A member of the RNA family "SAM riboswitch aptamer (S box leader)" from Clostridium sp. HMP27, 111 nucleotides long.

[Rfam]
RNA sequence: GACUUAUCAAGAGUGGUGGAGGGACUGGCCCGAUGAAACCCGGCAACCAAUAUAUAUUAUUGUGAUAUAUAUAAGGUGCUAAAUCCUGCAGCGUAAGCUGAGAGAUGAGGG
Dot-bracket structure: ..((((((....(.(((...(((.[.[[)))......))))((((.((.((((((((.......))))))))..))))))...(]].]((((....))))..)))))))..
Numbered sequence: 001g002a003c004u005u006a007u008c009a010a011g012a013g014u015g016g017u018g019g020a021g022g023g024a025c026u027g028g029c030c031c032g033a034u035g036a037a038a039c040c041c042g043g044c045a046a047c048c049a050a051u052a053u054a055u056a057u058u059a060u061u062g063u064g065a066u067a068u069a070u071a072u073a074a075g076g077u078g079c080u081a082a083a084u085c086c087u088g089c090a091g092c093g094u095a096a097g098c099u100g101a102g103a104g105a106u107g108a109g110g111g
Stems, first nucleotide, its partner, number of pairs: 003109006013041001015040003021031003025088001027086002042080004047076002050072008084103001089100004
Its family is annotated with regulation of gene expression in the Gene Ontology.